[Rfam]
Rfam assigns this 85-nucleotide RNA from Cynara cardunculus to the family "Small nucleolar RNA U61". A search with the family's covariance model found it, with a score of 59 bits. A reference for the family is Brown et al. (2003), "Plant snoRNA database", Nucleic Acids Res. By type it is a C/D-box small nucleolar RNA. The family has 8 seed sequences and 401 matches in Rfam 15.1.
RNA sequence: UCGCUAUGAGGAAAACGUAAAUGCUCCAGAAACAGGAUCUAAUCCUGUCGCUGAUGGUAGCAAACCUCUAAGAAGUUCUGAGCGA
Numbered sequence: 001u002c003g004c005u006a007u008g009a010g011g012a013a014a015a016c017g018u019a020a021a022u023g024c025u026c027c028a029g030a031a032a033c034a035g036g037a038u039c040u041a042a043u044c045c046u047g048u049c050g051c052u053g054a055u056g057g058u059a060g061c062a063a064a065c066c067u068c069u070a071a072g073a074a075g076u077u078c079u080g081a082g083c084g085a
Stems, first nucleotide, its partner, number of pairs: 001085004